[Rfam]
RNA sequence: GUUUGUGCAAUUGAAUAUUUCCGUAUAUGCUUGGGAAUUGGCCUAAGCGUUUCUACCCGGCAACCGUAAUUGCUGGACUACGGAGGGAAAGUGUACCUAG
Number, nucleotide and partner (000 for none) at each position: 001g000002u000003u000004u000005g000006u000007g000008c000009a000010a000011u000012u000013g000014a000015a000016u000017a000018u086019u085020u084021c083022c082023g081024u080025a079026u000027a000028u000029g048030c047031u046032u045033g044034g043035g042036a000037a000038u000039u000040g000041g000042c035043c034044u033045a032046a031047g030048c029049g000050u000051u000052u000053c000054u000055a000056c000057c076058c075059g074060g073061c072062a071063a070064c000065c000066g000067u000068a000069a000070u063071u062072g061073c060074u059075g058076g057077a000078c000079u025080a024081c023082g022083g021084a020085g019086g018087g000088a000089a000090a000091g000092u000093g000094u000095a000096c000097c000098u000099a000100g000